[Rfam]
Nucleotides: 066
Base pairs, nucleotide, nucleotide: 014039015038016037017036018035022030023029042065043064044063045062046061047060048059049058050057051056
Number, partner (000 for none) and nucleotide at each position: 001000g002000a003000c004000u005000u006000u007000g008000a009000g010000u011000g012000u013000c014039c015038a016037g017036c018035c019000c020000a021000c022030g023029c024000g025000a026000u027000u028000a029023g030022c031000g032000a033000a034000a035018g036017g037016c038015u039014g040000a041000u042065g043064g044063c045062u046061g047060g048059u049058g050057g051056c052000u053000u054000u055000u056051g057050c058049c059048a060047c061046c062045g063044g064043c065042c066000u